This 130-nucleotide RNA from Cicer arietinum belongs to the Rfam family "Small nucleolar RNA SNORA69".

RNA sequence: UAUGGGUGGGCAUUUUACAGCGCUUUUUCGAGAAAGCGCUGUAAUAUGCACACCCAUAUAUGAAAUUAUGGGUGGGCAUAUUACAGCGCUUUUUUGAGAAAGCGCUGUAAUAUGCACACCCAUAACUCAU
Numbered sequence: 001u002a003u004g005g006g007u008g009g010g011c012a013u014u015u016u017a018c019a020g021c022g023c024u025u026u027u028u029c030g031a032g033a034a035a036g037c038g039c040u041g042u043a044a045u046a047u048g049c050a051c052a053c054c055c056a057u058a059u060a061u062g063a064a065a066u067u068a069u070g071g072g073u074g075g076g077c078a079u080a081u082u083a084c085a086g087c088g089c090u091u092u093u094u095u096g097a098g099a100a101a102g103c104g105c106u107g108u109a110a111u112a113u114g115c116a117c118a119c120c121c122a123u124a125a126c127u128c129a130u
Stems, first nucleotide, its partner, number of pairs: 003056006018041009067124008076115002083108011
Lineage of the source: Eukaryota > Euphyllophyta > Gunneridae > rosids > Cicer. By type it is an H/ACA-box small nucleolar RNA. Its family is annotated with nucleolus and RNA processing in the Gene Ontology. It scores 47 bits against the family's covariance model. The family's consensus secondary structure was predicted with PFOLD. U69 is a member of the H/ACA class of small nucleolar RNAs (snoRNAs) which act as guides in the the modification of uridines to pseudouridines.